RNA sequence: AAAAAGGGCUUCUGUCGUGAGUGACACACGUAGGGCAGCUCGUUUGCUCUACGUGCGGAAUCGACAUCAAGAGAUUUCGGAAGCAUAAUUUUUGUUGUUAGGGCAGCUGGUGAUCGUUGGUCCUGGCGAAAAA
Numbered sequence: 001a002a003a004a005a006g007g008g009c010u011u012c013u014g015u016c017g018u019g020a021g022u023g024a025c026a027c028a029c030g031u032a033g034g035g036c037a038g039c040u041c042g043u044u045u046g047c048u049c050u051a052c053g054u055g056c057g058g059a060a061u062c063g064a065c066a067u068c069a070a071g072a073g074a075u076u077u078c079g080g081a082a083g084c085a086u087a088a089u090u091u092u093u094g095u096u097g098u099u100a101g102g103g104c105a106g107c108u109g110g111u112g113a114u115c116g117u118u119g120g121u122c123c124u125g126g127c128g129a130a131a132a133a
Stems, first nucleotide, its partner, number of pairs: 008084005013026005027055012056079007104128001106127005112122004

This 133-nucleotide RNA from Erinaceus europaeus belongs to the Rfam family "U11 spliceosomal RNA". The family is grouped with related families in Rfam's "U1 clan". The match comes from Rfam's covariance-model search (115 bits). The base pairs follow the family's consensus structure, which is taken from published work. The literature on the family includes a 2004 paper in Proc Natl Acad Sci U S A by Schneider et al., "Identification of an evolutionarily divergent U11 small nuclear ribonucleoprotein particle in Drosophila". Taxonomically the source falls in Erinaceus (Eukaryota, Gnathostomata, Theria, Erinaceidae). By type it is a spliceosomal small nuclear RNA.